[Rfam]
c-di-AMP riboswitch aptamer (ydaO/yuaA leader): a 144-nucleotide sequence from Effusibacillus dendaii. It scores 76 bits against the family's covariance model. Rfam describes the family as follows. This family represents a conserved RNA structure found upstream of the ydaO and yuaA genes in Bacillus subtilis and related genes in other bacteria. The organism belongs to Effusibacillus, within Bacteria.
RNA sequence: AAUUCAAUCUAGCCUAAUCUUGUUUUACAGCAAGAGCGGAGGAACCAAUCAAGUGGGGUUAAUCCUGAUUGAUCAGGAGGGAUGAGAUACACUUCUCUGCCAUCCUACCCGUCAGCUAACUUCGUCGGCUAAAGCAGGGAAGGU
Numbered sequence: 001a002a003u004u005c006a007a008u009c010u011a012g013c014c015u016a017a018u019c020u021u022g023u024u025u026u027a028c029a030g031c032a033a034g035a036g037c038g039g040a041g042g043a044a045c046c047a048a049u050c051a052a053g054u055g056g057g058g059u060u061a062a063u064c065c066u067g068a069u070u071g072a073u074c075a076g077g078a079g080g081g082a083u084g085a086g087a088u089a090c091a092c093u094u095c096u097c098u099g100c101c102a103u104c105c106u107a108c109c110c111g112u113c114a115g116c117u118a119a120c121u122u123c124g125u126c127g128g129c130u131a132a133a134g135c136a137g138g139g140a141a142g143g144u
Base pairs, nucleotide, nucleotide: 011130012129013128014127018035019034020033021032022031023030036125037124038123039122040121041120046055047054056110057109058108064077065076066075067074080105081104082103083102
Dot-bracket structure: ..........((((...((((((......))))))((((((....((......))(((.....((((......))))..((((..................))))..))).........)))))).))))..............